[Rfam]
The record is a 100-nucleotide sequence from Hydrogenophaga sp. A37, which matches "Glycine riboswitch aptamer" in Rfam.
RNA sequence: UCCUGCCAGUCAGGAGAGCGCUUCCCCGUGAAGCCGCCGAAGGCGCAGGCGACCGGUUCACCGGUCCUGAACGCUCAGGCAAAAGGACUGGCAACCACCG
Numbered sequence: 001u002c003c004u005g006c007c008a009g010u011c012a013g014g015a016g017a018g019c020g021c022u023u024c025c026c027c028g029u030g031a032a033g034c035c036g037c038c039g040a041a042g043g044c045g046c047a048g049g050c051g052a053c054c055g056g057u058u059c060a061c062c063g064g065u066c067c068u069g070a071a072c073g074c075u076c077a078g079g080c081a082a083a084a085g086g087a088c089u090g091g092c093a094a095c096c097a098c099c100g
Stems, first nucleotide, its partner, number of pairs: 009092005020034004036080003039076002043074003048068002
The match comes from Rfam's covariance-model search (46 bits).